[Rfam]
RNA sequence: GCUCCUCCAUGGGUGGGGAUUUGUUGCACUACUUGUAGCUAAGAUCGAGAGUAUUGCACUUGUCCCGGCCUGUGGAGGAAAG
Numbered sequence: 001g002c003u004c005c006u007c008c009a010u011g012g013g014u015g016g017g018g019a020u021u022u023g024u025u026g027c028a029c030u031a032c033u034u035g036u037a038g039c040u041a042a043g044a045u046c047g048a049g050a051g052u053a054u055u056g057c058a059c060u061u062g063u064c065c066c067g068g069c070c071u072g073u074g075g076a077g078g079a080a081a082g
Stems, first nucleotide, its partner, number of pairs: 004078003009073006016066005023059002026057003030053005